[Rfam]
RNA: Iron response element II
RNA sequence: UGGAUUUCUGCGUCAGUGUAUGCAAAAUUUG
Numbered sequence: 001u002g003g004a005u006u007u008c009u010g011c012g013u014c015a016g017u018g019u020a021u022g023c024a025a026a027a028u029u030u031g
Stems, first nucleotide, its partner, number of pairs: 001031007009024005014018001